[Rfam]
Notes
The record is a 69-nucleotide sequence from Streptomyces sp. 150FB, which matches "ASpks TB sRNA" in Rfam. On this family, see Arnvig and Young, Mol Microbiol 2009: "Identification of small RNAs in Mycobacterium tuberculosis". Rfam classes the family as an antisense RNA. The base pairs follow the family's consensus structure, which is taken from published work. NCBI's taxonomy places the organism under Bacteria, Actinomycetota, Actinomycetes, Kitasatosporales, Streptomyces.

RNA sequence: CUUCAACGAGCCGAUCCACAGGGGCGUUUCACGGCCCUGCCCGUACGUGGCCAGCAGCGCCUGCGCCUC
Numbered sequence: 001c002u003u004c005a006a007c008g009a010g011c012c013g014a015u016c017c018a019c020a021g022g023g024g025c026g027u028u029u030c031a032c033g034g035c036c037c038u039g040c041c042c043g044u045a046c047g048u049g050g051c052c053a054g055c056a057g058c059g060c061c062u063g064c065g066c067c068u069c
Base pairs, nucleotide, nucleotide: 015024016023017022030065032059033058037054038053039052041050042049043048